[Rfam]
RNA sequence: CGCCAAGUCCGAGGUUCCGGUGCUCACUGGAACCUGGUGCAAGAGGGA
Dot-bracket structure: ............((((((((......))))))))..............
Notes:
The record is a 48-nucleotide sequence from Streptomyces sp. ISL-98, which matches "raiA-hairpin RNA" in Rfam. NCBI's taxonomy places the organism under Bacteria, Bacillati, Actinomycetes, Kitasatosporales, Streptomyces. The family's RNA type in Rfam is small RNA. It scores 66 bits against the family's covariance model.